[Rfam]
RNA sequence: AAAGUAGACGAGGUGAUCGCCGGUUAUAAUGAAUCUUCGGAUUUAUUAUUGGACGGGAGGAAAGUCCGAGCUCCAUAGGGCGCAGUGCUCCGUAACGCGGAGUCCCGGCGACGGGAAGGAAAGUGCAACAGAAAAUAUACCGUCUCAUCUUUUUUUCGAUGGGAUAAGGGUGAAAUGGCGGGGCCGAAAGGCUUAAUGUAAGAGCCCACCGCUCCGGCGGCGACGUUGGAGGCAUGGCAAACCCCACUGGGAGAAAGGCCAAAUAGGGAGGGAUGAAGCUGCCCGCUUCGCUAUACCUUCGGGUAGGCCGUUAGAUCUCGCUGGCAACAACGAGGCUAGAUGAAUGAUCACCCACGACAAGACUCGGCUUAUUGUCUACUUUUACC
Number, nucleotide and partner (000 for none) at each position: 001a382002a381003a380004g379005u378006a377007g376008a375009c374010g373011a372012g352013g351014u350015g349016a348017u347018c346019g000020c057021c056022g000023g054024u053025u052026a000027u000028a049029a000030u000031g000032a000033a000034u000035c000036u000037u000038c000039g000040g000041a000042u000043u000044u000045a000046u000047u000048a000049u028050u000051g000052g025053a024054c023055g000056g021057g020058a000059g000060g000061a000062a370063a369064g368065u000066c367067c366068g365069a364070g363071c253072u252073c251074c250075a000076u000077a000078g284079g283080g282081c281082g000083c249084a248085g247086u246087g245088c102089u101090c100091c099092g098093u000094a000095a000096c000097g000098c092099g091100g090101a089102g088103u117104c115105c114106c113107g112108g000109c000110g000111a000112c107113g106114g105115g104116a000117a103118g244119g243120a000121a000122a000123g242124u241125g238126c237127a000128a000129c000130a000131g000132a000133a000134a000135a000136u000137a000138u000139a000140c169141c168142g165143u164144c163145u162146c161147a160148u159149c158150u000151u000152u000153u000154u000155u000156u000157c000158g149159a148160u147161g146162g145163g144164a143165u142166a000167a000168g141169g140170g000171u000172g000173a000174a000175a000176u000177g210178g209179c000180g207181g206182g205183g000184c000185c000186g000187a000188a000189a000190g000191g000192c000193u000194u000195a000196a000197u000198g000199u000200a000201a000202g000203a000204g000205c182206c181207c180208a000209c178210c177211g233212c231213u230214c229215c228216g227217g226218c225219g224220g000221c000222g000223a000224c219225g218226u217227u216228g215229g214230a213231g212232g000233c211234a000235u000236g000237g126238c125239a000240a000241a124242c123243c119244c118245c087246a086247c085248u084249g083250g074251g073252a072253g071254a000255a000256a000257g309258g308259c307260c306261a000262a000263a000264u000265a000266g000267g300268g299269a298270g297271g296272g000273a000274u000275g289276a288277a287278g286279c285280u000281g081282c080283c079284c078285g279286c278287u277288u276289c275290g000291c000292u000293a000294u000295a000296c271297c270298u269299u268300c267301g000302g000303g000304u000305a000306g260307g259308c258309c257310g000311u000312u000313a000314g000315a000316u335317c334318u333319c332320g331321c000322u329323g328324g000325c000326a000327a000328c323329a322330a000331c320332g319333a318334g317335g316336c000337u000338a000339g000340a000341u000342g000343a000344a000345u000346g018347a017348u016349c015350a014351c013352c012353c000354a000355c000356g000357a000358c000359a000360a000361g000362a000363c070364u069365c068366g067367g066368c064369u063370u062371a000372u011373u010374g009375u008376c007377u006378a005379c004380u003381u002382u001383u000384a000385c000386c000

About this RNA
Rfam assigns this 386-nucleotide sequence from Candidatus Kuenenia stuttgartensis to the family "Bacterial RNase P class A". The family's consensus secondary structure is taken from published work. It is annotated as a ribozyme. NCBI's taxonomy places the organism under Bacteria, Pseudomonadati, Candidatus Brocadiia, Candidatus Brocadiales, Candidatus Kuenenia. From the family's description: Ribonuclease P (RNase P) is a ubiquitous endoribonuclease, found in archaea, bacteria and eukarya as well as chloroplasts and mitochondria. Its best characterised activity is the generation of mature 5'-ends of tRNAs by cleaving the 5'-leader elements of precursor-tRNAs. Cellular RNase Ps are ribonucleoproteins.